[Rfam]
RNA sequence: UUGCGGCGAGGUGAUGGCGUUCCACCUUACCCAACCGCUUCCCCUGAGAAGCUGAUGACGCCUGAUAUUAC
Numbered sequence: 001u002u003g004c005g006g007c008g009a010g011g012u013g014a015u016g017g018c019g020u021u022c023c024a025c026c027u028u029a030c031c032c033a034a035c036c037g038c039u040u041c042c043c044c045u046g047a048g049a050a051g052c053u054g055a056u057g058a059c060g061c062c063u064g065a066u067a068u069u070a071c
Stems, first nucleotide, its partner, number of pairs: 010026004016062006037052004

The record is a 71-nucleotide sequence from Klebsiella pneumoniae, which matches "Fluoride riboswitch aptamer (crcB RNA motif)" in Rfam. The family's consensus secondary structure is taken from published work. The organism belongs to Klebsiella pneumoniae subsp. pneumoniae, within Bacteria. The sequence is in the family's curated seed alignment.